Shown here is a 475-nucleotide sequence from Semnornis frantzii, a member of the family "Vertebrate telomerase RNA". Pairs were carried over by alignment from the consensus structure, which is taken from published work. Rfam describes the family as follows. Telomerase is a ribonucleoprotein reverse transcriptase that synthesises telomeric DNA. Telomerase RNAs differ greatly in sequence and structure between vertebrates, ciliates and yeasts, but they share a 5' pseudoknot structure close to the template sequence. Vertebrate telomerase RNAs have a 3' H/ACA snoRNA-like domain. NCBI's taxonomy places the organism under Eukaryota, Teleostomi, Sauropsida, Coraciimorphae, Semnornis. By type it is a non-coding RNA gene.
RNA sequence: GCAUGGCAGGAGGGGAGGAUCUGGGGAUGCUAACCCUAAUGGCUGGUGGUGCGCUCACCCUGAACGUCCGCUGUUUUACUCGCUGACUUUCAGCGGACGAGGGGAGUGGCUCGGGGGAGGGGCGGAAGGGAAGGGGGUCCGCUAUGGAAAAAAAAACAAACCCCAAACCAAAAAACGUCAGCGAGGGGUUCUCCUCACCUCGGCCCGUCCUGGGGUCCCCGUGUGUCUCCCAUCGCAAGCGGGGGCACUCCGCAGGGACUCCCGCCGCCGCACAUCCUUGAGGCCGCGGUCGGCCGGCACCCGCUAAUGCCACCGCGAAGAGUUCGUCUCUGUCAGCCUUAGCGGCAGGCAGGAGCGAAAGGACUCGUCCCCCUGCACCGGGAGAUCCCAGCACAACAAAAAGGAGGGUGCCCGUGGUCCACGCGCCGCGCUCCCUUCCCGUGGGGCGCGUGCAACCGGGCUCGCUCCGACACGC
Numbered sequence: 001g002c003a004u005g006g007c008a009g010g011a012g013g014g015g016a017g018g019a020u021c022u023g024g025g026g027a028u029g030c031u032a033a034c035c036c037u038a039a040u041g042g043c044u045g046g047u048g049g050u051g052c053g054c055u056c057a058c059c060c061u062g063a064a065c066g067u068c069c070g071c072u073g074u075u076u077u078a079c080u081c082g083c084u085g086a087c088u089u090u091c092a093g094c095g096g097a098c099g100a101g102g103g104g105a106g107u108g109g110c111u112c113g114g115g116g117g118a119g120g121g122g123c124g125g126a127a128g129g130g131a132a133g134g135g136g137g138u139c140c141g142c143u144a145u146g147g148a149a150a151a152a153a154a155a156a157c158a159a160a161c162c163c164c165a166a167a168c169c170a171a172a173a174a175a176c177g178u179c180a181g182c183g184a185g186g187g188g189u190u191c192u193c194c195u196c197a198c199c200u201c202g203g204c205c206c207g208u209c210c211u212g213g214g215g216u217c218c219c220c221g222u223g224u225g226u227c228u229c230c231c232a233u234c235g236c237a238a239g240c241g242g243g244g245g246c247a248c249u250c251c252g253c254a255g256g257g258a259c260u261c262c263c264g265c266c267g268c269c270g271c272a273c274a275u276c277c278u279u280g281a282g283g284c285c286g287c288g289g290u291c292g293g294c295c296g297g298c299a300c301c302c303g304c305u306a307a308u309g310c311c312a313c314c315g316c317g318a319a320g321a322g323u324u325c326g327u328c329u330c331u332g333u334c335a336g337c338c339u340u341a342g343c344g345g346c347a348g349g350c351a352g353g354a355g356c357g358a359a360a361g362g363a364c365u366c367g368u369c370c371c372c373c374u375g376c377a378c379c380g381g382g383a384g385a386u387c388c389c390a391g392c393a394c395a396a397c398a399a400a401a402a403g404g405a406g407g408g409u410g411c412c413c414g415u416g417g418u419c420c421a422c423g424c425g426c427c428g429c430g431c432u433c434c435c436u437u438c439c440c441g442u443g444g445g446g447c448g449c450g451u452g453c454a455a456c457c458g459g460g461c462u463c464g465c466u467c468c469g470a471c472a473c474g475c
Stems, first nucleotide, its partner, number of pairs: 005205003008200003012196011053107004065099009082182006088175003210391007242371005247365001249363002259355004264350002267346005285317005292311003296305003319331004404467003408463001410461005427452002431446004